[Rfam]
RNA sequence: AGAGUUUCCAGGCCAUAGCAGAAGCGUCAACAGUGUGGACUGUCAGAUUUCAACAAAUCUGCACAUUUUUCU
Numbered sequence: 001a002g003a004g005u006u007u008c009c010a011g012g013c014c015a016u017a018g019c020a021g022a023a024g025c026g027u028c029a030a031c032a033g034u035g036u037g038g039a040c041u042g043u044c045a046g047a048u049u050u051c052a053a054c055a056a057a058u059c060u061g062c063a064c065a066u067u068u069u070u071c072u
Stems, first nucleotide, its partner, number of pairs: 011040001013038002017072002020069004024036003044061007
Dot-bracket structure: ..........[.[[..((.(((((((.......)))]].]...(((((((....)))))))....)))).))